[Rfam]
RNA sequence: UUGGAUGUGAAUUGAUUUAUGUUUGGAUAUGCUUAUUAAAAGUAAUUUUUAUAAGUUGACGUUGUUUGGAUAG
Numbered sequence: 001u002u003g004g005a006u007g008u009g010a011a012u013u014g015a016u017u018u019a020u021g022u023u024u025g026g027a028u029a030u031g032c033u034u035a036u037u038a039a040a041a042g043u044a045a046u047u048u049u050u051a052u053a054a055g056u057u058g059a060c061g062u063u064g065u066u067u068g069g070a071u072a073g
Base pairs, nucleotide, nucleotide: 012059013058014057015056016055017054018053021052022051025048026047027046028045030044031043032042033041034040
RNA: MIR5272 microRNA precursor family
Organism: Medicago truncatula